[Rfam]
RNA sequence: GUGAAGUUUAUCACAAAACAAACAUAUACCCCUUUGUUUGACCGUGAAAAAUUUCUCCCAUCCCCUUGUUGUCUUAAGACAAACGAAAAGACUUGGCGAAAGCCAAGUCUUUUUU
Numbered sequence: 001g002u003g004a005a006g007u008u009u010a011u012c013a014c015a016a017a018a019c020a021a022a023c024a025u026a027u028a029c030c031c032c033u034u035u036g037u038u039u040g041a042c043c044g045u046g047a048a049a050a051a052u053u054u055c056u057c058c059c060a061u062c063c064c065c066u067u068g069u070u071g072u073c074u075u076a077a078g079a080c081a082a083a084c085g086a087a088a089a090g091a092c093u094u095g096g097c098g099a100a101a102g103c104c105a106a107g108u109c110u111u112u113u114u115u
Base pairs, nucleotide, nucleotide: 003055004054005053006052007051008050011047012046013045014044019040020039021038022037023036024035070083075081087112088111089110090109091108092107093106094105095104096103097102
This 115-nucleotide RNA sequence from Priestia megaterium belongs to the Rfam family "RNA Staph. aureus E (RoxS)". NCBI's taxonomy places the organism under Bacteria, Caryophanales, Bacillaceae, Priestia, Priestia megaterium.